[Rfam]
RNA sequence: ACCUGCUCCGGGCGCUCUGCGUGGCGUCCGAGGCAUCAGAGACAGACUGUGCCCCGGGAAGUUCUGGGCACUCCAGGGUGUU
Dot-bracket structure: ...((((.((((((((......)))))))).)))).............((((((.(.......).))))))...........